This 116-nucleotide RNA sequence from Polaribacter pacificus belongs to the Rfam family "Flavo-1 RNA". Pairs were carried over by alignment from the consensus structure, which is taken from published work. Lineage of the source: Bacteria > Pseudomonadati > Bacteroidota > Flavobacteriia > Polaribacter. It is annotated as a small RNA.
[Rfam]
RNA sequence: AAAUUGCGUUAAGGAUAGCAGUGAAAAUCCUUUUUAUGUCAGUUGGAGUGAAUUUGCCUUUUGCAAAUUUGUAUCGAGAACACAUAAAAAGAUUGAAACGAAUAGCCUGUUAAAAC
Dot-bracket structure: ...........(((.((...((...((((..((((((((..........................................)))))))).))))...))...)).)))........